[Rfam]
RNA sequence: CCCUGCUUAGGUUGUGAAAGCUUGUAAUACUCUUGAACCUAUAAUUUUGCAUCUCGGGAAUAAAGAGUUACUGAUUUUGUUGUGCAUGCCCACCUUGAAGUGGGAAGUCUGAUAAAUCGCUCGAUAUACCCACUUGAACCACACGGUUCAGAGAUGUCGCCGUAACAAACUGGGUAGGUG
Numbered sequence: 001c002c003c004u005g006c007u008u009a010g011g012u013u014g015u016g017a018a019a020g021c022u023u024g025u026a027a028u029a030c031u032c033u034u035g036a037a038c039c040u041a042u043a044a045u046u047u048u049g050c051a052u053c054u055c056g057g058g059a060a061u062a063a064a065g066a067g068u069u070a071c072u073g074a075u076u077u078u079g080u081u082g083u084g085c086a087u088g089c090c091c092a093c094c095u096u097g098a099a100g101u102g103g104g105a106a107g108u109c110u111g112a113u114a115a116a117u118c119g120c121u122c123g124a125u126a127u128a129c130c131c132a133c134u135u136g137a138a139c140c141a142c143a144c145g146g147u148u149c150a151g152a153g154a155u156g157u158c159g160c161c162g163u164a165a166c167a168a169a170c171u172g173g174g175u176a177g178g179u180g
Stems, first nucleotide, its partner, number of pairs: 002178009012168004030153003034150006056131003060127003065122001067121001072119004077115002084108002089104005
RNA: 6S / SsrS RNA
Organism: Beggiatoa alba